[Rfam]
RNA: MIR168 microRNA precursor family
RNA sequence: UUACCGGCGGUCUCUAAUUCGCUUGGUGCAGGUCGGGAACUGAUUGGCUUCGCUUGGAUAUAUAUUCUUAUCAGCGCCAAAUGGCGAUAUGUGAUUGGUUGAGAUUGGACAGAAGCGAAUUAGAUCCCGCCUUGCAUCAACUGAAUCGGAGACCGCGGUGAAA
Numbered sequence: 001u002u003a004c005c006g007g008c009g010g011u012c013u014c015u016a017a018u019u020c021g022c023u024u025g026g027u028g029c030a031g032g033u034c035g036g037g038a039a040c041u042g043a044u045u046g047g048c049u050u051c052g053c054u055u056g057g058a059u060a061u062a063u064a065u066u067c068u069u070a071u072c073a074g075c076g077c078c079a080a081a082u083g084g085c086g087a088u089a090u091g092u093g094a095u096u097g098g099u100u101g102a103g104a105u106u107g108g109a110c111a112g113a114a115g116c117g118a119a120u121u122a123g124a125u126c127c128c129g130c131c132u133u134g135c136a137u138c139a140a141c142u143g144a145a146u147c148g149g150a151g152a153c154c155g156c157g158g159u160g161a162a163a
Stems, first nucleotide, its partner, number of pairs: 013150002017146004023140010034129005040123006